The family of this 78-nucleotide sequence from Callorhinchus milii is "mir-103/107 microRNA precursor family". Taxonomically the source falls in Callorhinchus (Eukaryota, Deuterostomia, Gnathostomata, Chimaeriformes). This family consists of the mammalian microRNA (miRNA) precursors mir-103 and mir107. Animal miRNAs are transcribed as ~70nt precursors and subsequently processed by the Dicer enzyme to give a ~22nt product. In this case the mature sequence comes from the 3' arm of the precursor.

RNA sequence: CUGUGAUUUGGGCUUCUUUACAGUGUUGCCUUGUAGCUUGGAGAUCAAGCAGCAUUGUACAGGGCUAUCAAAGCGCAG
Number, nucleotide and partner (000 for none) at each position: 001c000002u000003g000004u000005g000006a000007u000008u000009u000010g000011g000012g000013c000014u064015u063016c062017u061018u000019u059020a058021c057022a056023g055024u054025g053026u052027u051028g050029c000030c049031u048032u047033g046034u000035a000036g000037c000038u000039u000040g000041g000042a000043g000044a000045u000046c033047a032048a031049g030050c028051a027052g026053c025054a024055u023056u022057g021058u020059a019060c000061a017062g016063g015064g014065c000066u000067a000068u000069c000070a000071a000072a000073g000074c000075g000076c000077a000078g000